[Rfam]
RNA sequence: AGAGCAGGCAACGUCUGUACUACGUGGGAGCUCGCUCGUCUUACCCAUCUGCGUCGUACUGUAGAAGCCUGCAAGA
Number, nucleotide and partner (000 for none) at each position: 001a000002g000003a000004g072005c071006a070007g069008g068009c067010a000011a000012c000013g000014u000015c000016u000017g059018u058019a057020c000021u000022a000023c053024g000025u000026g000027g000028g000029a000030g000031c000032u000033c000034g000035c000036u000037c000038g000039u000040c000041u000042u000043a000044c000045c000046c000047a000048u000049c000050u000051g000052c000053g023054u000055c000056g000057u019058a018059c017060u000061g000062u000063a000064g000065a000066a000067g009068c008069c007070u006071g005072c004073a000074a000075g000076a000
This 76-nucleotide sequence from Trypanosoma conorhini belongs to the Rfam family "Trypanosomatid snoRNA TB10Cs5H2".
Rfam classes the family as an H/ACA-box small nucleolar RNA.
Rfam links the family to the GO terms nucleolus and RNA processing.
NCBI's taxonomy places the organism under Eukaryota, Kinetoplastea, Metakinetoplastina, Trypanosomatidae, Trypanosoma.
On this family, see Myslyuk et al., BMC Bioinformatics 2008: "Psiscan: a computational approach to identify H/ACA-like and AGA-like non-coding RNA in trypanosomatid genomes".